[Rfam]
RNA: SAM riboswitch aptamer (S box leader)
Organism: Thermoactinomyces mirandus
RNA sequence: CUCUUAUCCAGAGAGGCGGAGGGACUGGCCCAAUGAAGCCCGGCAACCUGUUGGACUGUUUGUCUUCCAAUGUGGUGCCAAUUCCAGCAGAGAGAAGUUCUCUCCCUGAAAGAUGAGAG
Number, nucleotide and partner (000 for none) at each position: 001c119002u118003c117004u116005u115006a114007u113008c112009c000010a000011g000012a000013g041014a000015g040016g039017c038018g000019g000020a000021g031022g030023g029024a000025c087026u086027g085028g084029c023030c022031c021032a000033a000034u000035g000036a000037a000038g017039c016040c015041c013042g079043g078044c077045a076046a000047c075048c074049u000050g071051u070052u069053g068054g067055a066056c000057u000058g000059u000060u000061u000062g000063u000064c000065u000066u055067c054068c053069a052070a051071u050072g000073u000074g048075g047076u045077g044078c043079c042080a000081a000082u000083u111084c028085c027086a026087g025088c108089a107090g106091a000092g104093a103094g102095a101096a000097g000098u000099u000100c000101u095102c094103u093104c092105c000106c090107u089108g088109a000110a000111a083112g008113a007114u006115g005116a004117g003118a002119g001